[Rfam]
RNA sequence: AGAUAACGACAGGGGUGCCCGCUCACAAGGCGGGCUGAGAAAUACCCUUUAAACCUGAACCGGAUAAUGCCGGCGGAGGGAGUCGAUCGGAUGUCUCA
Dot-bracket structure: ......((((((((.((((((((.....)))))))......)..)))).....(((...((((......))))...)))..)))).............
RNA: TPP riboswitch aptamer (THI element)
Organism: Cephaloticoccus capnophilus